[Rfam]
RNA sequence: AGAGUCAAGGUGGAGAAGUAGUCUCUUCACUUUGAAUAAUGGUAAGUGAGAUUCAACUCCUCCAACUUAUUUUC
Dot-bracket structure: ......(((.(((((..((....((.((((((...........))))))))....).).))))).)))......
Numbered sequence: 001a002g003a004g005u006c007a008a009g010g011u012g013g014a015g016a017a018g019u020a021g022u023c024u025c026u027u028c029a030c031u032u033u034g035a036a037u038a039a040u041g042g043u044a045a046g047u048g049a050g051a052u053u054c055a056a057c058u059c060c061u062c063c064a065a066c067u068u069a070u071u072u073u074c
Stems, first nucleotide, its partner, number of pairs: 007068003011064005018058001019056001024051002027049006